[Rfam]
RNA sequence: AUUUCCAGAAAAGCGACGAACAACGUCCAUUUGUUCGUCGCUUUUCUGGGAUUUU
Numbered sequence: 001a002u003u004u005c006c007a008g009a010a011a012a013g014c015g016a017c018g019a020a021c022a023a024c025g026u027c028c029a030u031u032u033g034u035u036c037g038u039c040g041c042u043u044u045u046c047u048g049g050g051a052u053u054u055u
Base pairs, nucleotide, nucleotide: 001053003051004050005049006048007047008046009045010044011043012042013041014040015039016038017037018036019035020034021033
MIR8008 microRNA precursor family: a 55-nucleotide sequence from Solanum commersonii. The organism belongs to Solanum, within Eukaryota. The base pairs follow the family's consensus structure, which was predicted with RNAalifold.